[Rfam]
RNA sequence: ACACGGGAAAGGAGGUGGUCCGAGAAAUGCAUUCUCUCAGGACGCGUGAGGUGACUGCCCGCUAGGCAGUCGUCCAUCAGGGCGGGGGCGACGACGUCGUCCGAGCUGCCGGCAAUACCCGGCGGUCACCCGACCCGCAGGCGCUCCGCGAACGUCCGGCGGAGGCGGCCCUCGAGGCCACGCCUGCGGGUCGUUCCAC
Numbered sequence: 001a002c003a004c005g006g007g008a009a010a011g012g013a014g015g016u017g018g019u020c021c022g023a024g025a026a027a028u029g030c031a032u033u034c035u036c037u038c039a040g041g042a043c044g045c046g047u048g049a050g051g052u053g054a055c056u057g058c059c060c061g062c063u064a065g066g067c068a069g070u071c072g073u074c075c076a077u078c079a080g081g082g083c084g085g086g087g088g089c090g091a092c093g094a095c096g097u098c099g100u101c102c103g104a105g106c107u108g109c110c111g112g113c114a115a116u117a118c119c120c121g122g123c124g125g126u127c128a129c130c131c132g133a134c135c136c137g138c139a140g141g142c143g144c145u146c147c148g149c150g151a152a153c154g155u156c157c158g159g160c161g162g163a164g165g166c167g168g169c170c171c172u173c174g175a176g177g178c179c180a181c182g183c184c185u186g187c188g189g190g191u192c193g194u195u196c197c198a199c
Stems, first nucleotide, its partner, number of pairs: 014059006061113003065109001066106001070104003131193013144164006
Background: This 199-nucleotide RNA from Nocardioides bruguierae belongs to the Rfam family "Actinobacteria sRNA Ms_IGR-5". Lineage of the source: Bacteria > Actinomycetes > Propionibacteriales > Nocardioidaceae > Nocardioides. The pairing is the family consensus, mapped onto this sequence.